[Rfam]
RNA sequence: UAAUCUUCGUAGAAGAAAUAUGAAACAUAUGCUAGGAAUGUUUAGCGAUACAUUUUACCAAAAAUCGCUGCGAUUCCAAGAAUUCAUAUUUAUUUUGAAACGCUACUGGGAUGUCUGCAAUGAAAUGGGAAACA
Number, nucleotide and partner (000 for none) at each position: 001u000002a000003a000004u016005c015006u014007u013008c012009g000010u000011a000012g008013a007014a006015g005016a004017a000018a000019u122020a121021u120022g000023a000024a000025a116026c000027a114028u113029a112030u111031g000032c109033u108034a107035g106036g000037a000038a000039u000040g000041u000042u000043u000044a069045g068046c067047g066048a065049u064050a000051c000052a000053u000054u000055u000056u000057a000058c000059c000060a000061a000062a000063a000064a049065u048066c047067g046068c045069u044070g103071c102072g101073a000074u099075u098076c097077c000078a000079a096080g095081a094082a093083u092084u000085c000086a000087u000088a000089u000090u000091u000092a083093u082094u081095u080096u079097g076098a075099a074100a000101c072102g071103c070104u000105a000106c035107u034108g033109g032110g000111a030112u029113g028114u027115c000116u025117g000118c000119a000120a021121u020122g019123a000124a000125a000126u000127g000128g000129g000130a000131a000132a000133c000134a000
Brucella babR 5'UTR: a 134-nucleotide RNA sequence from Brucella melitensis. From the family's description: Hfq protein regulates virB operon which is required for full virulence of the bacteria. It can bind to 5' untranslated region of virB transcriptional regulator BabR and mediate its effects on babR expression. It is annotated as a cis-regulatory element. The organism belongs to Brucella melitensis bv. 3, within Bacteria.